Shown here is a 127-nucleotide RNA sequence from Serratia proteamaculans, a member of the family "Phenylalanine leader peptide". Pairs were carried over by alignment from the consensus structure, which was predicted with CMfinder. It is annotated as a cis-regulatory leader. The family has 71 seed sequences and 379 matches in Rfam 15.1.
[Rfam]
RNA sequence: CAUGCUCCGUAAACCGUUUUUCUUCGCAUUCUUUUUUACCUUCCCCUGAUUGGGAGGCGUUUCGUCGUGUGAUAAAGAAUGCGAAGACGAACAGCAAAGCCUCCUGAAAUCAGGGGGCUUUUUUUAU
Number, nucleotide and partner (000 for none) at each position: 001c000002a000003u000004g000005c000006u000007c000008c000009g000010u000011a000012a000013a000014c000015c000016g092017u091018u090019u089020u000021u087022c086023u085024u084025c083026g082027c081028a080029u079030u078031c077032u076033u075034u074035u000036u072037u071038a070039c069040c000041u000042u055043c054044c053045c052046c000047u000048g000049a000050u000051u000052g045053g044054g043055a042056g066057g065058c064059g063060u000061u000062u000063c059064g058065u057066c056067g000068u000069g039070u038071g037072a036073u000074a034075a033076a032077g031078a030079a029080u028081g027082c026083g025084a024085a023086g022087a021088c000089g019090a018091a017092c016093a000094g000095c000096a121097a120098a119099g118100c117101c116102u115103c114104c113105u112106g000107a000108a000109a000110u000111c000112a105113g104114g103115g102116g101117g100118c099119u098120u097121u096122u000123u000124u000125u000126a000127u000